[Rfam]
RNA sequence: GAUGCGGACCGGGCCCCUCUGGUGCAGGCAGUGCCUGCAUGAUGUCGGACCGCAUCG
Numbered sequence: 001g002a003u004g005c006g007g008a009c010c011g012g013g014c015c016c017c018u019c020u021g022g023u024g025c026a027g028g029c030a031g032u033g034c035c036u037g038c039a040u041g042a043u044g045u046c047g048g049a050c051c052g053c054a055u056c057g
Stems, first nucleotide, its partner, number of pairs: 006051002009048004022040008
A member of the RNA family "terC RNA" from Pseudorhodobacter sp. MZDSW-24AT, 57 nucleotides long. Taxonomically the source falls in Pseudorhodobacter (Bacteria, Pseudomonadati, Alphaproteobacteria, Paracoccaceae). A search with the family's covariance model found it, with a score of 57 bits. Pairs were carried over by alignment from the consensus structure, which is taken from published work.